The record is a 312-nucleotide RNA from Halonotius sp. J07HN6, which matches "Archaeal signal recognition particle RNA" in Rfam. Pairs were carried over by alignment from the consensus structure, which is taken from published work. By type it is a non-coding RNA gene. Taxonomically the source falls in Halonotius (Archaea, Methanobacteriota, Halobacteriales, Haloferacaceae).
RNA sequence: UCGUGGACUAGGUCGGGCAGGUAGGCCCUGCUCUCCACCCGUGAGACAGUCUUUAGCGGGGACCGAACGCCGGGGGCGUCGGUCGAACCGACGCAGGCCUCGGGAGCCAACGUGGAAACCUCGUCCGUCGGGGACAGCGGUCCGCCGUGCACACCCGCAGGGGUGUCCCACGGCGGUUGGUCGGCGACAGUGGGUCAGGCGCGGAAGCGAGCAGCCCAUCGCCGGACGCCCGUCGCUCGCCGGAUCGCGGGGUGGAGGAGGCAACCGAGAAUCCCUGUGCCCGGAACGGCCGGCAACUCCGGCUGUCCGCCA
Numbered sequence: 001u002c003g004u005g006g007a008c009u010a011g012g013u014c015g016g017g018c019a020g021g022u023a024g025g026c027c028c029u030g031c032u033c034u035c036c037a038c039c040c041g042u043g044a045g046a047c048a049g050u051c052u053u054u055a056g057c058g059g060g061g062a063c064c065g066a067a068c069g070c071c072g073g074g075g076g077c078g079u080c081g082g083u084c085g086a087a088c089c090g091a092c093g094c095a096g097g098c099c100u101c102g103g104g105a106g107c108c109a110a111c112g113u114g115g116a117a118a119c120c121u122c123g124u125c126c127g128u129c130g131g132g133g134a135c136a137g138c139g140g141u142c143c144g145c146c147g148u149g150c151a152c153a154c155c156c157g158c159a160g161g162g163g164u165g166u167c168c169c170a171c172g173g174c175g176g177u178u179g180g181u182c183g184g185c186g187a188c189a190g191u192g193g194g195u196c197a198g199g200c201g202c203g204g205a206a207g208c209g210a211g212c213a214g215c216c217c218a219u220c221g222c223c224g225g226a227c228g229c230c231c232g233u234c235g236c237u238c239g240c241c242g243g244a245u246c247g248c249g250g251g252g253u254g255g256a257g258g259a260g261g262c263a264a265c266c267g268a269g270a271a272u273c274c275c276u277g278u279g280c281c282c283g284g285a286a287c288g289g290c291c292g293g294c295a296a297c298u299c300c301g302g303c304u305g306u307c308c309g310c311c312a
Base pairs, nucleotide, nucleotide: 001312003310004309005308006307007306008305011064012063013062014061015033016032017031018030019029020028021027038060039059040058041057042056069303070302071301072300073299074298075297078294079293080292081291082290083289084288085287088283090281092279093278094277095276096275097274099269100268101267102266103265106262107261108260111257113255118253119252120251121250122249123248124247125243126242127241129239130238131237132236133234134233135232137230138228139227140178142176143175144174145173146172147171148170149169151166152165153164154163155162156161181225182224183223184222185221186220187219191218192217193216194215195214200209201208202207